The record is a 553-nucleotide part of an RNA from Thelohanellus kitauei, which matches "Eukaryotic large subunit ribosomal RNA" in Rfam.
[Rfam]
RNA sequence: UAGAAUAAUGUGGGUAAGGGAAGUCGGCAAAAUAGAUUCGUAACUUCGGGAUAAGGAUUGGCUCUAAGGAUUGGACUAUUCGGAUUGGCGUCUCGUAAAAGAGACGAUCGUUGACGCUGUUUGUCGUGGCCAGAUGGGUUACCGUGUGGUCGCGUAUUCAGAUGUUGGCGUAUUGUUACUGUUACCAGGUGUCAAUUUACAGUGGCGUCGGCAGGCAAUUUAAUUGUUGUCAGCCGAUGCCCUGUCUCGCGAGUAGUUUAAAUCAAUCAACUUAGAACUGUCACUAACUAGGGGAAUCCGACUGUUUAAUUAAAACAAAGCAUUGCGAUGGCUGGAAACGGUGUUGACGCAAUGUGAAUUCUGCCCAGUGCUCUGAAUGUCAAAGUGUGGAGACACAACCAAGCGCGGGUAAACGGCGGGAGUAACUAUGACUCUCUUAAGAUAGCCAAAUGCCUCGUCAUCUAAUUAGUGACGCGCAUGAAUGGAUCAACGAGAUUCCCACUGUCCCUACCUACCAUCUAGCGAACAAACAGUCAAGGGAACGGGCUUGACU
Numbered sequence: 001u002a003g004a005a006u007a008a009u010g011u012g013g014g015u016a017a018g019g020g021a022a023g024u025c026g027g028c029a030a031a032a033u034a035g036a037u038u039c040g041u042a043a044c045u046u047c048g049g050g051a052u053a054a055g056g057a058u059u060g061g062c063u064c065u066a067a068g069g070a071u072u073g074g075a076c077u078a079u080u081c082g083g084a085u086u087g088g089c090g091u092c093u094c095g096u097a098a099a100a101g102a103g104a105c106g107a108u109c110g111u112u113g114a115c116g117c118u119g120u121u122u123g124u125c126g127u128g129g130c131c132a133g134a135u136g137g138g139u140u141a142c143c144g145u146g147u148g149g150u151c152g153c154g155u156a157u158u159c160a161g162a163u164g165u166u167g168g169c170g171u172a173u174u175g176u177u178a179c180u181g182u183u184a185c186c187a188g189g190u191g192u193c194a195a196u197u198u199a200c201a202g203u204g205g206c207g208u209c210g211g212c213a214g215g216c217a218a219u220u221u222a223a224u225u226g227u228u229g230u231c232a233g234c235c236g237a238u239g240c241c242c243u244g245u246c247u248c249g250c251g252a253g254u255a256g257u258u259u260a261a262a263u264c265a266a267u268c269a270a271c272u273u274a275g276a277a278c279u280g281u282c283a284c285u286a287a288c289u290a291g292g293g294g295a296a297u298c299c300g301a302c303u304g305u306u307u308a309a310u311u312a313a314a315a316c317a318a319a320g321c322a323u324u325g326c327g328a329u330g331g332c333u334g335g336a337a338a339c340g341g342u343g344u345u346g347a348c349g350c351a352a353u354g355u356g357a358a359u360u361c362u363g364c365c366c367a368g369u370g371c372u373c374u375g376a377a378u379g380u381c382a383a384a385g386u387g388u389g390g391a392g393a394c395a396c397a398a399c400c401a402a403g404c405g406c407g408g409g410u411a412a413a414c415g416g417c418g419g420g421a422g423u424a425a426c427u428a429u430g431a432c433u434c435u436c437u438u439a440a441g442a443u444a445g446c447c448a449a450a451u452g453c454c455u456c457g458u459c460a461u462c463u464a465a466u467u468a469g470u471g472a473c474g475c476g477c478a479u480g481a482a483u484g485g486a487u488c489a490a491c492g493a494g495a496u497u498c499c500c501a502c503u504g505u506c507c508c509u510a511c512c513u514a515c516c517a518u519c520u521a522g523c524g525a526a527c528a529a530a531c532a533g534u535c536a537a538g539g540g541a542a543c544g545g546g547c548u549u550g551a552c553u
Base pairs, nucleotide, nucleotide: 001521002520003519004518010515011514012513013512014511015510016509018507019506020505035059036058037057038056039055044049060279061278063276064275065274066273067272068271069268070267071266072265073264075257076256077255078254079253080252081251082250096184097183098182104176105175106174107173109170110169111168112167113166114165115164116163117161118160119159122156125154126153127152128151129150130149131148132147134145135144136143137142280284292500293499294498295497296496297495298494299492300491303317304316305315320355321354322353323352324351325350326349327348331342332341333340334339358487359486360485361484363417364416365415368414369413370410371409372408373407375406378405379404380403386397387396388395389394418436419435420434421433422432423431437441457473458472459471460470461469534551535550536549537548538547